[Rfam]
RNA sequence: UGACGGGGACCCGCACAAGCGGUGGAGCAUGUGGUUUAAUUCGAAGCAACGCGAAGAACCUUACCAAAUCUUGACAUACUCUUGAAUAGUCUUGUAAUGAGACUAGUCCUUCGGGACAAGGGAUACAGGUGGUGCAUGGUUGUCGUCAGCUCGUGUCGUGAGAUGUUGGGUUAAGUCCCGCAACGAGCGCAACCCUUGUCGUCAGUAGCCAGCAGUAAGAUGGGGACUCUGACGAGACAGCCGGAGAUAAUCCGGAGGAAGGUGGGGAUGACGUCAAAUCAUCAUGCCCCUUAUGAUUUGGGCUACACACGUGCUACAAUGGCGUAAACAAAGUGAAGCAAAGCUGCGAAGCCAAGCAAAUCACAAAAAUAACGUCUCAGUUCGGAUUGUAGUCUGCAACUCGACUAUAUGAAGCUGGAAUCGCUAGUAAUCGCAGAUCAGAAUGCUGCGGUGAAUACGUUCCCGGGUCUUGUACACACCGCCCGUCACACCAUGGGAGUCAUCAAUGCCCGAAGUCAGUGACCUAACCGUAAGGAAGGAGCUGCCGAAGGCAGGGAGGAUAACUGGGGUGAAGUCGUAACAAGG
Numbered sequence: 001u002g003a004c005g006g007g008g009a010c011c012c013g014c015a016c017a018a019g020c021g022g023u024g025g026a027g028c029a030u031g032u033g034g035u036u037u038a039a040u041u042c043g044a045a046g047c048a049a050c051g052c053g054a055a056g057a058a059c060c061u062u063a064c065c066a067a068a069u070c071u072u073g074a075c076a077u078a079c080u081c082u083u084g085a086a087u088a089g090u091c092u093u094g095u096a097a098u099g100a101g102a103c104u105a106g107u108c109c110u111u112c113g114g115g116a117c118a119a120g121g122g123a124u125a126c127a128g129g130u131g132g133u134g135c136a137u138g139g140u141u142g143u144c145g146u147c148a149g150c151u152c153g154u155g156u157c158g159u160g161a162g163a164u165g166u167u168g169g170g171u172u173a174a175g176u177c178c179c180g181c182a183a184c185g186a187g188c189g190c191a192a193c194c195c196u197u198g199u200c201g202u203c204a205g206u207a208g209c210c211a212g213c214a215g216u217a218a219g220a221u222g223g224g225g226a227c228u229c230u231g232a233c234g235a236g237a238c239a240g241c242c243g244g245a246g247a248u249a250a251u252c253c254g255g256a257g258g259a260a261g262g263u264g265g266g267g268a269u270g271a272c273g274u275c276a277a278a279u280c281a282u283c284a285u286g287c288c289c290c291u292u293a294u295g296a297u298u299u300g301g302g303c304u305a306c307a308c309a310c311g312u313g314c315u316a317c318a319a320u321g322g323c324g325u326a327a328a329c330a331a332a333g334u335g336a337a338g339c340a341a342a343g344c345u346g347c348g349a350a351g352c353c354a355a356g357c358a359a360a361u362c363a364c365a366a367a368a369a370u371a372a373c374g375u376c377u378c379a380g381u382u383c384g385g386a387u388u389g390u391a392g393u394c395u396g397c398a399a400c401u402c403g404a405c406u407a408u409a410u411g412a413a414g415c416u417g418g419a420a421u422c423g424c425u426a427g428u429a430a431u432c433g434c435a436g437a438u439c440a441g442a443a444u445g446c447u448g449c450g451g452u453g454a455a456u457a458c459g460u461u462c463c464c465g466g467g468u469c470u471u472g473u474a475c476a477c478a479c480c481g482c483c484c485g486u487c488a489c490a491c492c493a494u495g496g497g498a499g500u501c502a503u504c505a506a507u508g509c510c511c512g513a514a515g516u517c518a519g520u521g522a523c524c525u526a527a528c529c530g531u532a533a534g535g536a537a538g539g540a541g542c543u544g545c546c547g548a549a550g551g552c553a554g555g556g557a558g559g560a561u562a563a564c565u566g567g568g569g570u571g572a573a574g575u576c577g578u579a580a581c582a583a584g585g
Stems, first nucleotide, its partner, number of pairs: 001476002003473003007470007015460002019424005024317001026315008034306002040055004064301007077125002079122005088104007106117004128290002131288004137284002139279003142275001144273002149188006155164003167180004194267004199235007209224002213222002238258001241255005321376005327370001333364003338357002343352003383414001388409007430452007479584001481581001484577002489571004494566003499561003503557002507553004515546001517544004523539003528535002

About this RNA: Shown here is a 585-nucleotide part of an RNA from Lachnospiraceae bacterium oral taxon 500, a member of the family "Bacterial small subunit ribosomal RNA". The base pairs follow the family's consensus structure, which is taken from published work.